[Rfam]
RNA: Bacterial small subunit ribosomal RNA, nucleotides 907 to 1506
RNA sequence: UGACGGGGAUCCGCACAAGCGGUGGAGCAUGUGGUUUAAUUUGAAGAUACGCGUAGAACCUUACCCACUCUUGACAUCUUCUGCAAAGCUAUGGAGACAUAGUGGAGGUUAACAGAAUGACAGAUGGUGCAUGGUUGUCGUCAGCUCGUGUCGUGAGAUGUUUGGUUAAGUCCUGCAACGAGCGCAACCCUUAUCCUUAGUUACUACCAUUUAGUUGAGGACUCUAAGGAGACUGCCCGAGUAAUCGGGAGGAAGGUGGGGAUGACGUCAAAUCAUCAUGCCUCUUACGAGUGGGGCAACACACGUGCUACAAUGGCCGGUACAAAGAGAAGCGAAGUGGUGACAUGGAGCAAACCUCAAAAAACCGGUCUCAGUUCGGAUUGUAGUCUGCAACUCGACUACAUGAAGUCGGAAUCGCUAGUAAUCGUAGAUCAGCUACGCUACGGUGAAUACGUUCUCGGGUCUUGUACACACCGCCCGUCAAACCAUGGGAGCUGGUAAUGCCCGAAGUCGGUUUAUAAACAAACUGCCUAAGGCAGGACUGGUGACUGGGGUUAAGUCGUAACAAGGUAUCCCUACGAGAACGUGGGGAUGGAUCAC
Numbered sequence: 001u002g003a004c005g006g007g008g009a010u011c012c013g014c015a016c017a018a019g020c021g022g023u024g025g026a027g028c029a030u031g032u033g034g035u036u037u038a039a040u041u042u043g044a045a046g047a048u049a050c051g052c053g054u055a056g057a058a059c060c061u062u063a064c065c066c067a068c069u070c071u072u073g074a075c076a077u078c079u080u081c082u083g084c085a086a087a088g089c090u091a092u093g094g095a096g097a098c099a100u101a102g103u104g105g106a107g108g109u110u111a112a113c114a115g116a117a118u119g120a121c122a123g124a125u126g127g128u129g130c131a132u133g134g135u136u137g138u139c140g141u142c143a144g145c146u147c148g149u150g151u152c153g154u155g156a157g158a159u160g161u162u163u164g165g166u167u168a169a170g171u172c173c174u175g176c177a178a179c180g181a182g183c184g185c186a187a188c189c190c191u192u193a194u195c196c197u198u199a200g201u202u203a204c205u206a207c208c209a210u211u212u213a214g215u216u217g218a219g220g221a222c223u224c225u226a227a228g229g230a231g232a233c234u235g236c237c238c239g240a241g242u243a244a245u246c247g248g249g250a251g252g253a254a255g256g257u258g259g260g261g262a263u264g265a266c267g268u269c270a271a272a273u274c275a276u277c278a279u280g281c282c283u284c285u286u287a288c289g290a291g292u293g294g295g296g297c298a299a300c301a302c303a304c305g306u307g308c309u310a311c312a313a314u315g316g317c318c319g320g321u322a323c324a325a326a327g328a329g330a331a332g333c334g335a336a337g338u339g340g341u342g343a344c345a346u347g348g349a350g351c352a353a354a355c356c357u358c359a360a361a362a363a364a365c366c367g368g369u370c371u372c373a374g375u376u377c378g379g380a381u382u383g384u385a386g387u388c389u390g391c392a393a394c395u396c397g398a399c400u401a402c403a404u405g406a407a408g409u410c411g412g413a414a415u416c417g418c419u420a421g422u423a424a425u426c427g428u429a430g431a432u433c434a435g436c437u438a439c440g441c442u443a444c445g446g447u448g449a450a451u452a453c454g455u456u457c458u459c460g461g462g463u464c465u466u467g468u469a470c471a472c473a474c475c476g477c478c479c480g481u482c483a484a485a486c487c488a489u490g491g492g493a494g495c496u497g498g499u500a501a502u503g504c505c506c507g508a509a510g511u512c513g514g515u516u517u518a519u520a521a522a523c524a525a526a527c528u529g530c531c532u533a534a535g536g537c538a539g540g541a542c543u544g545g546u547g548a549c550u551g552g553g554g555u556u557a558a559g560u561c562g563u564a565a566c567a568a569g570g571u572a573u574c575c576c577u578a579c580g581a582g583a584a585c586g587u588g589g590g591g592a593u594g595g596a597u598c599a600c
Stems, first nucleotide, its partner, number of pairs: 001471002003468003007465007015455002019418005024311001026309008034300002040055001042053002064295007077120002079117005088103006123284002126282004132278002134273003137269001139267002144183006150159003162175001164173002189261004194230007204219002208217002233252002236249005315370007327358003332351002337346003377408001382403007424447007474569001476566001479562002484556004489551003494546006502538004510531001512529004517524001571594010